[Rfam]
RNA sequence: GUGCCUCAAUCUAUUGAGUAAGGAAAUUAUUGGGCCUUGGUAACUCUCGGCUAUGUCCUGUAAGGGCGACCGUAUUUUUGAAGGGCAAAGGUCGUCCCUUUGAGUCGUGCGCCUACUUUGCACAUGAUUCGGGUGAAGCGAUCUACCCU
Numbered sequence: 001g002u003g004c005c006u007c008a009a010u011c012u013a014u015u016g017a018g019u020a021a022g023g024a025a026a027u028u029a030u031u032g033g034g035c036c037u038u039g040g041u042a043a044c045u046c047u048c049g050g051c052u053a054u055g056u057c058c059u060g061u062a063a064g065g066g067c068g069a070c071c072g073u074a075u076u077u078u079u080g081a082a083g084g085g086c087a088a089a090g091g092u093c094g095u096c097c098c099u100u101u102g103a104g105u106c107g108u109g110c111g112c113c114u115a116c117u118u119u120g121c122a123c124a125u126g127a128u129u130c131g132g133g134u135g136a137a138g139c140g141a142u143c144u145a146c147c148c149u
Stems, first nucleotide, its partner, number of pairs: 004023003008019001033052004039046001054068005082149004089144007098133002102130005108124002111121002
The record is a 149-nucleotide RNA sequence from Danaus plexippus, which matches "U12 minor spliceosomal RNA" in Rfam.
Its family is annotated with pre-mRNA branch point binding, U12 snRNP and mRNA branch site recognition in the Gene Ontology.
The match comes from Rfam's covariance-model search (91 bits).
The base pairs follow the family's consensus structure.